[Rfam]
RNA: ES222 sRNA
RNA sequence: AGUGCUUUUAUGGAAACAUAGGGCACCAUAUUGGUGCAAUUUUCGUUAUUUGCCCCUUUUAACGCUCCGUGAAAGCGAUCACAAAGCAACUCUGCAAUACUUGUUUGC
Number, nucleotide and partner (000 for none) at each position: 001a000002g026003u025004g024005c023006u022007u021008u000009u020010a019011u018012g017013g000014a000015a000016a000017c012018a011019u010020a009021g007022g006023g005024c004025a003026c002027c103028a102029u000030a000031u099032u000033g000034g000035u096036g095037c094038a093039a000040u000041u000042u000043u000044c086045g000046u084047u083048a000049u000050u000051u078052g000053c000054c000055c000056c000057u075058u074059u073060u072061a000062a070063c069064g068065c000066u000067c000068c064069g063070u062071g000072a060073a059074a058075g057076c000077g000078a051079u000080c000081a000082c000083a047084a046085a000086g044087c000088a000089a000090c000091u000092c000093u038094g037095c036096a035097a000098u000099a031100c000101u000102u028103g027104u000105u000106u000107g000108c000